This 124-nucleotide RNA from Pseudoxanthomonas suwonensis belongs to the Rfam family "Xanthomonadaceae sRNA Xoo5".
RNA sequence: CAAUGAAUACCGACCUUCAGCCGCACGCUGCGAGUACUGCCCGGAUGGCCUCCGGCAUGACCUCGCGUGCGCGCCGACCGGAAUCCCACCUUUCCGCUGGGUGACCGGAGCGUCGUGCCGUCCG
Numbered sequence: 001c002a003a004u005g006a007a008u009a010c011c012g013a014c015c016u017u018c019a020g021c022c023g024c025a026c027g028c029u030g031c032g033a034g035u036a037c038u039g040c041c042c043g044g045a046u047g048g049c050c051u052c053c054g055g056c057a058u059g060a061c062c063u064c065g066c067g068u069g070c071g072c073g074c075c076g077a078c079c080g081g082a083a084u085c086c087c088a089c090c091u092u093u094c095c096g097c098u099g100g101g102u103g104a105c106c107g108g109a110g111c112g113u114c115g116u117g118c119c120g121u122c123c124g
Base pairs, nucleotide, nucleotide: 034118035117036116038112039111040110041108042107043079044078046076047075048074049073055070056069057068058067059066080106081105085101086100087099088098089096

A search with the family's covariance model found it, with a score of 113 bits. By type it is a small RNA. NCBI's taxonomy places the organism under Bacteria, Lysobacterales, Lysobacteraceae, Pseudoxanthomonas, Pseudoxanthomonas suwonensis. The family's consensus secondary structure was predicted with RNAalifold.